[Rfam]
RNA: SAH (S-adenosyl-L-homocysteine) riboswitch aptamer
Organism: Paenacidovorax monticola
RNA sequence: CUUUCCGAGGAGCGUUGCAGCGCCCCCAGCAUGGCGGGGCGCGAGGCUCGGAUUCUUUGCAUUCGCAACGACGCUCGCCCACG
Numbered sequence: 001c002u003u004u005c006c007g008a009g010g011a012g013c014g015u016u017g018c019a020g021c022g023c024c025c026c027c028a029g030c031a032u033g034g035c036g037g038g039g040c041g042c043g044a045g046g047c048u049c050g051g052a053u054u055c056u057u058u059g060c061a062u063u064c065g066c067a068a069c070g071a072c073g074c075u076c077g078c079c080c081a082c083g
Stems, first nucleotide, its partner, number of pairs: 004052005021041006